[Rfam]
RNA sequence: GGCUUUCUUCGCGGCGGAGCUCGACCGCCCCUCUCCACGUUGAUCAACUACAUCGAUCAGCACAAGGACCGCUUCGGGGUCGAGCCGAUCUGCGCCGUGCUCACACAGGCCGGCGCCCAGAUCGCCCCG
Numbered sequence: 001g002g003c004u005u006u007c008u009u010c011g012c013g014g015c016g017g018a019g020c021u022c023g024a025c026c027g028c029c030c031c032u033c034u035c036c037a038c039g040u041u042g043a044u045c046a047a048c049u050a051c052a053u054c055g056a057u058c059a060g061c062a063c064a065a066g067g068a069c070c071g072c073u074u075c076g077g078g079g080u081c082g083a084g085c086c087g088a089u090c091u092g093c094g095c096c097g098u099g100c101u102c103a104c105a106c107a108g109g110c111c112g113g114c115g116c117c118c119a120g121a122u123c124g125c126c127c128c129g
Base pairs, nucleotide, nucleotide: 013029014028015027016026017025075129076128077127078126079125086124087123089121090120091119092118094116095115
Shown here is a 129-nucleotide sequence from Tessaracoccus lapidicaptus, a member of the family "ALIL pseudoknot".
By type it is a cis-regulatory element.
Taxonomically the source falls in Tessaracoccus (Bacteria, Bacillati, Actinomycetes, Propionibacteriales).
Pairs were carried over by alignment from the consensus structure, which is taken from published work.